[Rfam]
RNA sequence: AUGUCCGCGCCAUGGGACACCCCCUGCUUUCCACGGGCGCUGCGGCUACGCUUGCGGCGUGCGCCCUCUCCGGGAGGGCGUAAAGCCGACAGCCGUCGCAACCACGGGAGCACCUCCAUG
Numbered sequence: 001a002u003g004u005c006c007g008c009g010c011c012a013u014g015g016g017a018c019a020c021c022c023c024c025u026g027c028u029u030u031c032c033a034c035g036g037g038c039g040c041u042g043c044g045g046c047u048a049c050g051c052u053u054g055c056g057g058c059g060u061g062c063g064c065c066c067u068c069u070c071c072g073g074g075a076g077g078g079c080g081u082a083a084a085g086c087c088g089a090c091a092g093c094c095g096u097c098g099c100a101a102c103c104a105c106g107g108g109a110g111c112a113c114c115u116c117c118a119u120g
Stems, first nucleotide, its partner, number of pairs: 060082004065077004085099002088097003
RNA: Streptomyces-metH RNA